[Rfam]
RNA sequence: AUGUCAGAAUGACAUCUUUUGGUUGAUUGCUUGUAUCUUUCCCAAGCUUCAUAGAGGGAUUCACCUUCCUUCUGUUUGAAGGUUUGGACGUCCACUCUGAGCUU
Numbered sequence: 001a002u003g004u005c006a007g008a009a010u011g012a013c014a015u016c017u018u019u020u021g022g023u024u025g026a027u028u029g030c031u032u033g034u035a036u037c038u039u040u041c042c043c044a045a046g047c048u049u050c051a052u053a054g055a056g057g058g059a060u061u062c063a064c065c066u067u068c069c070u071u072c073u074g075u076u077u078g079a080a081g082g083u084u085u086g087g088a089c090g091u092c093c094a095c096u097c098u099g100a101g102c103u104u
Base pairs, nucleotide, nucleotide: 001104003102004101005099006098054071055070057068
This 104-nucleotide RNA sequence from Arachis duranensis belongs to the Rfam family "Plant small nucleolar RNA R71". Taxonomically the source falls in Arachis (Eukaryota, Viridiplantae, Embryophyta, Gunneridae). The family's RNA type in Rfam is C/D-box small nucleolar RNA.